[Rfam]
RNA sequence: AAAGUUUGAUACUGAUAAGAAAUGGCGAAUCAAUCAGACCCCGAGUCAUGCGUGCGGUAUCGCGAGGUGUCGCGCGAAGCGUUGACAGGGGAAACCAGCGGGCCAGCCAUUGAGCCGCGAAAUCAGGAUUCCGGGGGGCCGAUGCUGUUAAGCGAAGCAGAAGGCAAUACGGGCUAUGGCGUAUGUCGCCUGUCAUGGCCUGACCCCGCGCGGUCGGAGACCC
Numbered sequence: 001a002a003a004g005u006u007u008g009a010u011a012c013u014g015a016u017a018a019g020a021a022a023u024g025g026c027g028a029a030u031c032a033a034u035c036a037g038a039c040c041c042c043g044a045g046u047c048a049u050g051c052g053u054g055c056g057g058u059a060u061c062g063c064g065a066g067g068u069g070u071c072g073c074g075c076g077a078a079g080c081g082u083u084g085a086c087a088g089g090g091g092a093a094a095c096c097a098g099c100g101g102g103c104c105a106g107c108c109a110u111u112g113a114g115c116c117g118c119g120a121a122a123u124c125a126g127g128a129u130u131c132c133g134g135g136g137g138g139c140c141g142a143u144g145c146u147g148u149u150a151a152g153c154g155a156a157g158c159a160g161a162a163g164g165c166a167a168u169a170c171g172g173g174c175u176a177u178g179g180c181g182u183a184u185g186u187c188g189c190c191u192g193u194c195a196u197g198g199c200c201u202g203a204c205c206c207c208g209c210g211c212g213g214u215c216g217g218a219g220a221c222c223c
Stems, first nucleotide, its partner, number of pairs: 012037005019031002024190003039091004045086004049081002051076011111217001112215001114214006132208005138165003143159004170202011
RNA: Group II catalytic intron D1-D4-6
Organism: Orrella marina